[Rfam]
RNA: Purine riboswitch aptamer
RNA sequence: AUGCUAGUACCGUUAAUUUCUUGUAUAAGCCCGCUGAUAGGGUGCGGGCGUUUCUACAGGCAGCCGUAAACUGUCACAGUCUACAAGAAGAAGCAGGGAGUUU
Numbered sequence: 001a002u003g004c005u006a007g008u009a010c011c012g013u014u015a016a017u018u019u020c021u022u023g024u025a026u027a028a029g030c031c032c033g034c035u036g037a038u039a040g041g042g043u044g045c046g047g048g049c050g051u052u053u054c055u056a057c058a059g060g061c062a063g064c065c066g067u068a069a070a071c072u073g074u075c076a077c078a079g080u081c082u083a084c085a086a087g088a089a090g091a092a093g094c095a096g097g098g099a100g101u102u103u
Stems, first nucleotide, its partner, number of pairs: 018089008029049006059075005